[Rfam]
RNA sequence: GGGGAGAUCAGCAAGCGCGGGCCUGGAGGAACGCGGCGGCGCGCGGACACCGCGAGGCCACGGGGAGCGGCCGGGUCCCCGGAGGCGCGUUCUUCGGCCGGGCCGGGAGCCGCACCAGGCCGAAAGCCCGGCCCAGCGCAAGCCGCCCCGGUCUCAGCGUCCGUCCGCCCCGAGCAAGGCCAGCGGACAUGACCGACCCACCAGGGGCCCCGCCCCGGCGCUCGCAGGCCGCGGGUGAAGAAGAAAACACCACCCCACACAGCCCGGAGCGAGGACAUGGCCCAGAGGGAGGAAGUGGUCCCGAGCAAGGAGAUGGCCCGGAGCGAGGAGAUGACCCGGAGUGAGGCGGUAGCCCAGAGCGAGGAAAUG
Numbered sequence: 001g002g003g004g005a006g007a008u009c010a011g012c013a014a015g016c017g018c019g020g021g022c023c024u025g026g027a028g029g030a031a032c033g034c035g036g037c038g039g040c041g042c043g044c045g046g047a048c049a050c051c052g053c054g055a056g057g058c059c060a061c062g063g064g065g066a067g068c069g070g071c072c073g074g075g076u077c078c079c080c081g082g083a084g085g086c087g088c089g090u091u092c093u094u095c096g097g098c099c100g101g102g103c104c105g106g107g108a109g110c111c112g113c114a115c116c117a118g119g120c121c122g123a124a125a126g127c128c129c130g131g132c133c134c135a136g137c138g139c140a141a142g143c144c145g146c147c148c149c150g151g152u153c154u155c156a157g158c159g160u161c162c163g164u165c166c167g168c169c170c171c172g173a174g175c176a177a178g179g180c181c182a183g184c185g186g187a188c189a190u191g192a193c194c195g196a197c198c199c200a201c202c203a204g205g206g207g208c209c210c211c212g213c214c215c216c217g218g219c220g221c222u223c224g225c226a227g228g229c230c231g232c233g234g235g236u237g238a239a240g241a242a243g244a245a246a247a248c249a250c251c252a253c254c255c256c257a258c259a260c261a262g263c264c265c266g267g268a269g270c271g272a273g274g275a276c277a278u279g280g281c282c283c284a285g286a287g288g289g290a291g292g293a294a295g296u297g298g299u300c301c302c303g304a305g306c307a308a309g310g311a312g313a314u315g316g317c318c319c320g321g322a323g324c325g326a327g328g329a330g331a332u333g334a335c336c337c338g339g340a341g342u343g344a345g346g347c348g349g350u351a352g353c354c355c356a357g358a359g360c361g362a363g364g365a366a367a368u369g
Stems, first nucleotide, its partner, number of pairs: 020104007038093002041090002043053004061082001063080003067076002142350006167188001169186002205223004210218003256271001258269001260267001
Dot-bracket structure: ...................(((((((...........((.((((((...)))).......(.(((.((......)).))).)......)).))....))))))).....................................((((((...................(.((..............)).)................((((.(((...))).))))................................(.(.(......).).).........................................................................))))))...................

Bag-1 internal ribosome entry site (IRES): a 369-nucleotide sequence from Loxodonta africana. Taxonomically the source falls in Loxodonta (Eukaryota, Metazoa, Eumetazoa, Theria). Rfam's curators write: This family represents the bag-1 internal ribosome entry site (IRES). When expressed the BAG-1 protein is known to enhance the anti-apoptotic properties of Bcl-2. The base pairs follow the family's consensus structure, which was predicted with PFOLD. Rfam 15.1 lists 248 matches to the family in 165 species.